Rfam assigns this 93-nucleotide RNA sequence from Zhouia amylolytica to the family "SAM-I/IV (S-adenosyl methionine) riboswitch aptamer".
RNA sequence: UAUCAACAUCAAGAGUCUUUAAGUAGACAGCAACAGAGUGACAACACCACUGUGCUACCAUGAUGGGCCUUUAAAAGGAAAAAUGUUGUAAUC
Numbered sequence: 001u002a003u004c005a006a007c008a009u010c011a012a013g014a015g016u017c018u019u020u021a022a023g024u025a026g027a028c029a030g031c032a033a034c035a036g037a038g039u040g041a042c043a044a045c046a047c048c049a050c051u052g053u054g055c056u057a058c059c060a061u062g063a064u065g066g067g068c069c070u071u072u073a074a075a076a077g078g079a080a081a082a083a084u085g086u087u088g089u090a091a092u093c
Base pairs, nucleotide, nucleotide: 007065008064009063010062015028016027017026018025029056030055031054034052035051036050038047039046044087068078069077070076071075
Taxonomically the source falls in Zhouia amylolytica (Bacteria, Pseudomonadati, Flavobacteriia, Flavobacteriaceae). It scores 51 bits against the family's covariance model.